[Rfam]
Nucleotides: 132
Base pairs, nucleotide, nucleotide: 003054004053005052006051007050008049010048014044016041017040018039019038020037024033025032026031056071057070059068060067061066077118079116080115081110082109083108085105086104087103088102089101090100091099
Number, partner (000 for none) and nucleotide at each position: 001000u002000u003054g004053c005052a006051c007050a008049g009000u010048g011000a012000a013000c014044a015000c016041c017040c018039a019038a020037g021000u022000a023000u024033a025032c026031u027000u028000c029000a030000u031026a032025g033024u034000u035000c036000c037020c038019u039018u040017g041016g042000c043000a044014u045000a046000a047000c048010u049008c050007u051006g052005u053004g054003c055000u056071a057070g058000a059068a060067u061066a062000a063000u064000u065000c066061u067060g068059u069000g070057c071056u072000u073000u074000a075000c076000c077118u078000c079116u080115g081110c082109a083108u084000u085105g086104g087103a088102a089101g090100g091099a092000a093000u094000c095000c096000u097000u098000u099091u100090c101089c102088u103087u104086u105085u106000a107000c108083a109082u110081g111000u112000a113000u114000u115080c116079a117000a118077a119000a120000g121000g122000a123000c124000u125000g126000u127000a128000c129000a130000c131000u132000u
The family of this 132-nucleotide sequence from Chrysemys picta is "Small nucleolar RNA SNORA22". The base pairs follow the family's consensus structure, which was predicted with RNAfold. Lineage of the source: Eukaryota > Amniota > Testudines > Emydidae > Chrysemys picta. Its family is annotated with nucleolus and RNA processing in the Gene Ontology. Rfam classes the family as an H/ACA-box small nucleolar RNA. ACA22 is a member of the H/ACA class of snoRNA that guide the sites of modification of uridines to pseudouridines.